[Rfam]
RNA: TPP riboswitch aptamer (THI element)
Organism: Martelella mediterranea
RNA sequence: UCAGCUCUAACGGGGUGCGAUUUUCGCUGAGAGGCUUUAAGCCAACCCGAAGAACCUGAUCCGGCUAGCACCGGCGGAGGGAUUAGACGCGCAGGACGC
Numbered sequence: 001u002c003a004g005c006u007c008u009a010a011c012g013g014g015g016u017g018c019g020a021u022u023u024u025c026g027c028u029g030a031g032a033g034g035c036u037u038u039a040a041g042c043c044a045a046c047c048c049g050a051a052g053a054a055c056c057u058g059a060u061c062c063g064g065c066u067a068g069c070a071c072c073g074g075c076g077g078a079g080g081g082a083u084u085a086g087a088c089g090c091g092c093a094g095g096a097c098g099c
Stems, first nucleotide, its partner, number of pairs: 006087005011049004017027004034042003055080003061074004